[Rfam]
RNA sequence: CUUUCGGGUCCCCAUUGCAGCCCCCGGAUGAGCCCGCAGUAUUUUCCUUAUAUGAUCAGGUCCCAUUGCGGGCGGCGCCGCUUGCCCGGAGCCUGAGAGGAUUAUGAAAACGUGGCGAGCGAAAUGGGGCCAGGGGACCUGGAG
Number, nucleotide and partner (000 for none) at each position: 001c144002u143003u142004u000005c141006g140007g139008g138009u137010c136011c135012c134013c133014a000015u000016u000017g000018c000019a000020g130021c129022c128023c127024c126025c000026g000027g000028a000029u000030g000031a000032g000033c000034c000035c000036g000037c000038a000039g000040u000041a000042u000043u000044u000045u000046c000047c000048u000049u000050a000051u000052a000053u000054g000055a000056u096057c095058a094059g093060g092061u091062c000063c089064c088065a000066u000067u000068g085069c084070g083071g082072g081073c080074g079075g000076c000077g000078c000079c074080g073081c072082u071083u070084g069085c068086c000087c000088g064089g063090a000091g061092c060093c059094u058095g057096a056097g000098a000099g000100g000101a000102u000103u000104a000105u000106g000107a000108a000109a000110a000111c000112g000113u000114g000115g000116c000117g000118a000119g000120c000121g000122a000123a000124a000125u000126g024127g023128g022129g021130c020131c000132a000133g013134g012135g011136g010137a009138c008139c007140u006141g005142g003143a002144g001
RNA: small Cajal body-specific RNA 17